[Rfam]
RNA sequence: UCGGUCCCGGUUCACGCGCAGGCAGACAUCCCCGCAGCCCGCCCAUCGGGCGCGAGGAGCCGGUGCGACCCGGAACC
Number, nucleotide and partner (000 for none) at each position: 001u000002c000003g077004g076005u075006c000007c073008c072009g071010g070011u000012u000013c000014a000015c067016g066017c065018g064019c063020a000021g061022g060023c059024a000025g000026a000027c000028a000029u000030c000031c000032c000033c000034g000035c000036a000037g000038c000039c000040c000041g000042c000043c000044c000045a000046u000047c000048g000049g000050g000051c000052g000053c000054g000055a000056g000057g000058a000059g023060c022061c021062g000063g019064u018065g017066c016067g015068a000069c000070c010071c009072g008073g007074a000075a005076c004077c003
Background
Shown here is a 77-nucleotide RNA sequence from Streptomyces radiopugnans, a member of the family "L31-Actinobacteria ribosomal protein leader". For this family Rfam cites "Discovery of 20 novel ribosomal leader candidates in bacteria and archaea" (Eckert and Weinberg, BMC Microbiol, 2020). Lineage of the source: Bacteria > Actinomycetota > Actinomycetes > Kitasatosporales > Streptomyces. Rfam classes the family as a cis-regulatory leader.